[Rfam]
RNA: TPP riboswitch aptamer (THI element)
RNA sequence: UAGAAACUUUAGGGGUGCCUUCAGGGCUGAGAUCAAACCCUUUGAACCUGAUACGGAUCAUACCGACGAAGGAAAAAGUGAUUACCGAAGA
Numbered sequence: 001u002a003g004a005a006a007c008u009u010u011a012g013g014g015g016u017g018c019c020u021u022c023a024g025g026g027c028u029g030a031g032a033u034c035a036a037a038c039c040c041u042u043u044g045a046a047c048c049u050g051a052u053a054c055g056g057a058u059c060a061u062a063c064c065g066a067c068g069a070a071g072g073a074a075a076a077a078g079u080g081a082u083u084a085c086c087g088a089a090g091a
Stems, first nucleotide, its partner, number of pairs: 006079005011041004016035001017027004047072003054065003